[Rfam]
mir-2774 microRNA precursor family: a 66-nucleotide sequence from Bombyx mori.
Nucleotides: 066
Base pairs, nucleotide, nucleotide: 004065010059011057012056015053016052017051020049021048022047023046024045025044026043027042028041029040
Number, partner (000 for none) and nucleotide at each position: 001000a002000c003000a004065a005000c006000a007000u008000a009000c010059g011057g012056a013000c014000c015053g016052u017051c018000g019000g020049u021048c022047u023046a024045c025044c026043g027042a028041g029040c030000a031000a032000u033000a034000u035000c036000a037000c038000c039000c040029g041028c042027u043026c044025g045024g046023u047022g048021g049020a050000a051017g052016g053015u054000u055000g056012u057011c058000a059010u060000a061000u062000a063000c064000c065004u066000c